A member of the RNA family "MIR2629 microRNA precursor family" from Medicago truncatula, 64 nucleotides long.
RNA sequence: AAAACAGGUUUUCUCGGCAGUUAACUGCCGAAGUUUUCCUCGGCAGUUAACUGCCGAGGGAUAU
Numbered sequence: 001a002a003a004a005c006a007g008g009u010u011u012u013c014u015c016g017g018c019a020g021u022u023a024a025c026u027g028c029c030g031a032a033g034u035u036u037u038c039c040u041c042g043g044c045a046g047u048u049a050a051c052u053g054c055c056g057a058g059g060g061a062u063a064u
Base pairs, nucleotide, nucleotide: 012060014057015056016055017054018053019052020051021050022049023048024047025046026045027044028043